A member of the RNA family "Small nucleolar RNA Z155" from Eragrostis curvula, 76 nucleotides long. Lineage of the source: Eukaryota > Viridiplantae > Streptophyta > Mesangiospermae > Eragrostis. The pairing is the family consensus, mapped onto this sequence. The family's RNA type in Rfam is C/D-box small nucleolar RNA.
[Rfam]
RNA sequence: UGUUGAUGUGAGGAUAAUCUUCACUGAAUCAUAUUGUGUUGACUCAAAAAAUCAGACUACAAUUAUCUGAUCAACU
Numbered sequence: 001u002g003u004u005g006a007u008g009u010g011a012g013g014a015u016a017a018u019c020u021u022c023a024c025u026g027a028a029u030c031a032u033a034u035u036g037u038g039u040u041g042a043c044u045c046a047a048a049a050a051a052u053c054a055g056a057c058u059a060c061a062a063u064u065a066u067c068u069g070a071u072c073a074a075c076u
Stems, first nucleotide, its partner, number of pairs: 002075005